[Rfam]
RNA sequence: CUGCCAGUAGAAUGAAGUCUGCUUAACCUUUUAAAUGUUCUGCGGAGAUCUAAAUGCUGGCAACAGUAAAGCCAGGGUACGAGCCUUGAAGACUUAGUAGUCAUCGAGGUCCCAAUAAAUGGCUACACUU
Numbered sequence: 001c002u003g004c005c006a007g008u009a010g011a012a013u014g015a016a017g018u019c020u021g022c023u024u025a026a027c028c029u030u031u032u033a034a035a036u037g038u039u040c041u042g043c044g045g046a047g048a049u050c051u052a053a054a055u056g057c058u059g060g061c062a063a064c065a066g067u068a069a070a071g072c073c074a075g076g077g078u079a080c081g082a083g084c085c086u087u088g089a090a091g092a093c094u095u096a097g098u099a100g101u102c103a104u105c106g107a108g109g110u111c112c113c114a115a116u117a118a119a120u121g122g123c124u125a126c127a128c129u130u
Base pairs, nucleotide, nucleotide: 003061004060005059006058007057018046019045020044021043022042071123072122073121074120083110084109085108086107087106088105089104091102092101093100
RNA: Small nucleolar RNA SNORA33